6S / SsrS RNA: a 187-nucleotide sequence from Geobacillus kaustophilus. On this family, see Wassarman and Storz, Cell 2000: "6S RNA regulates E. coli RNA polymerase activity". The family has 150 seed sequences and 5,006 matches in Rfam 15.1. Rfam's curators write: E. coli 6S RNA was the first non coding RNA to be sequenced, but its function was unknown until recently. It consists of 184 nucleotides that fold into an extended hairpin structure with a large single-stranded internal bulge. The 6S RNA specifically associates with RNA polymerase holoenzyme containing the sigma70 specificity factor. This interaction represses expression from a sigma70-dependent promoter during stationary phase. 6S RNA homologs have recently been identified in most bacterial genomes. Many Gram-positive species have two copies of 6S RNA. In Bacillus subtilis, both copies appear to interact with RNA polymerase holoenzyme containing the housekeeping sigma factor and be expressed during different stages of growth. In many proteobacteria, 6S RNA may be processed from a transcript encoding homologs of the E. coli YgfA protein which is a putative 5-formyltetrahydrofolate cycloligase activity. The family's consensus secondary structure is taken from published work.
[Rfam]
RNA sequence: ACCGUCCUAAUGUGUUCGUCGGAUCACUGAUCGUUUUGACCGAACAGUUUAUGAUCCGGGAGCUCGGGGUUUCCAAGCGGCGUGCACGCCUCUUCGUCACAGGGGAAGCAUAAACCUUGGAACAGGGCACCCACCUAUGGGAGAGCGGGUUCAAAACGAAGGCAUCGACGGCACGAUUGGGACUGGC
Numbered sequence: 001a002c003c004g005u006c007c008u009a010a011u012g013u014g015u016u017c018g019u020c021g022g023a024u025c026a027c028u029g030a031u032c033g034u035u036u037u038g039a040c041c042g043a044a045c046a047g048u049u050u051a052u053g054a055u056c057c058g059g060g061a062g063c064u065c066g067g068g069g070u071u072u073c074c075a076a077g078c079g080g081c082g083u084g085c086a087c088g089c090c091u092c093u094u095c096g097u098c099a100c101a102g103g104g105g106a107a108g109c110a111u112a113a114a115c116c117u118u119g120g121a122a123c124a125g126g127g128c129a130c131c132c133a134c135c136u137a138u139g140g141g142a143g144a145g146c147g148g149g150u151u152c153a154a155a156a157c158g159a160a161g162g163c164a165u166c167g168a169c170g171g172c173a174c175g176a177u178u179g180g181g182a183c184u185g186g187c
Base pairs, nucleotide, nucleotide: 002185004183005182006181007180008179009178010177011176012174013173014172015171017170018169019168032158033157034156035155037153038152039151040149041148058132059131060130062128063127064126065125067123072121073120074119075118076117077116084109085108089105090104091103092102